[Rfam]
tp2: a 113-nucleotide RNA from Erwinia mallotivora.
Taxonomically the source falls in Erwinia (Bacteria, Pseudomonadota, Gammaproteobacteria, Enterobacterales).
Pairs were carried over by alignment from the consensus structure, which was predicted with RNAalifold.
RNA sequence: GGGAUUCCUUAUCUGUGUCUGAUUCAUUGAAUUAUCUGGAGCCUGUCUCUCUGGACUCUGCGUUGCAAAGCUCAGGGAGACAGGCCCAUCGUUAUACCCAACCUGCUGACGUG
Numbered sequence: 001g002g003g004a005u006u007c008c009u010u011a012u013c014u015g016u017g018u019c020u021g022a023u024u025c026a027u028u029g030a031a032u033u034a035u036c037u038g039g040a041g042c043c044u045g046u047c048u049c050u051c052u053g054g055a056c057u058c059u060g061c062g063u064u065g066c067a068a069a070g071c072u073c074a075g076g077g078a079g080a081c082a083g084g085c086c087c088a089u090c091g092u093u094a095u096a097c098c099c100a101a102c103c104u105g106c107u108g109a110c111g112u113g
Base pairs, nucleotide, nucleotide: 001098002097004095025091039087041085042084043083044082045081046080047079050076051075052074053073054072056070057069059067060066